RNA sequence: AUUGUUCACUCUCCCUCAGGGCUUCAAGCAAUCUCUGGUAAGCUCCAGGCUUGAGGUCUUUGGGGAGAGUGGAUAAAAG
Numbered sequence: 001a002u003u004g005u006u007c008a009c010u011c012u013c014c015c016u017c018a019g020g021g022c023u024u025c026a027a028g029c030a031a032u033c034u035c036u037g038g039u040a041a042g043c044u045c046c047a048g049g050c051u052u053g054a055g056g057u058c059u060u061u062g063g064g065g066a067g068a069g070u071g072g073a074u075a076a077a078a079g
Base pairs, nucleotide, nucleotide: 006072007071008070009069010068011067012066013065014064015063017062018060019059020058021057022056023055024054025053
Dot-bracket structure: .....((((((((((.(((((((((...........................)))))))).))))))))))).......
Description: The family of this 79-nucleotide RNA from Hevea brasiliensis is "MIR473 microRNA precursor family". Its family is annotated with RISC complex and miRNA-mediated post-transcriptional gene silencing in the Gene Ontology. The family's consensus secondary structure was predicted with WAR. The match comes from Rfam's covariance-model search (71 bits).